A member of the RNA family "Small nucleolar RNA SNORD124" from Rattus norvegicus, 104 nucleotides long. Rfam's curators put it in the seed alignment. Rfam 15.1 lists 191 matches to the family in 183 species. The family's RNA type in Rfam is C/D-box small nucleolar RNA. Pairs were carried over by alignment from the consensus structure, which was predicted with WAR.
Nucleotides: 104
Base pairs, nucleotide, nucleotide: 009095010094011093012092013091014090015089
Number, partner (000 for none) and nucleotide at each position: 001000g002000g003000a004000u005000u006000u007000c008000a009095a010094g011093g012092a013091a014090g015089g016000g017000a018000u019000g020000a021000u022000g023000u024000u025000u026000u027000u028000a029000c030000u031000a032000a033000g034000a035000c036000c037000c038000a039000a040000g041000a042000a043000a044000a045000g046000g047000a048000u049000u050000c051000u052000g053000a054000g055000c056000c057000u058000c059000a060000g061000a062000g063000c064000u065000u066000u067000g068000a069000a070000g071000g072000a073000a074000c075000c076000a077000c078000u079000u080000g081000g082000u083000c084000c085000c086000u087000g088000a089015c090014c091013u092012u093011c094010c095009u096000u097000c098000a099000g100000a101000a102000a103000g104000u